[Rfam]
RNA sequence: CCUGCCGGUGCGCCCAGUCCACCGUUGACAGGCAGGAGCGGGGGACCCAAUUCCCGGAGCCGGCCAGAUCGGUUCCUUGGGGUGAAGCCGCCUCACGCGCGGCCGGGCAACUUCCGCCCGAACCCGACAGCUCACCUCGUAGGCGUGGAAGGGAUCAACC
Numbered sequence: 001c002c003u004g005c006c007g008g009u010g011c012g013c014c015c016a017g018u019c020c021a022c023c024g025u026u027g028a029c030a031g032g033c034a035g036g037a038g039c040g041g042g043g044g045a046c047c048c049a050a051u052u053c054c055c056g057g058a059g060c061c062g063g064c065c066a067g068a069u070c071g072g073u074u075c076c077u078u079g080g081g082g083u084g085a086a087g088c089c090g091c092c093u094c095a096c097g098c099g100c101g102g103c104c105g106g107g108c109a110a111c112u113u114c115c116g117c118c119c120g121a122a123c124c125c126g127a128c129a130g131c132u133c134a135c136c137u138c139g140u141a142g143g144c145g146u147g148g149a150a151g152g153g154a155u156c157a158a159c160c
Stems, first nucleotide, its partner, number of pairs: 011145004018037003038140006048079002080125003088102004105119004
c-di-AMP riboswitch aptamer (ydaO/yuaA leader): a 160-nucleotide RNA sequence from Nocardioides iriomotensis.
Pairs were carried over by alignment from the consensus structure.
Lineage of the source: Bacteria > Actinomycetes > Propionibacteriales > Nocardioidaceae > Nocardioides.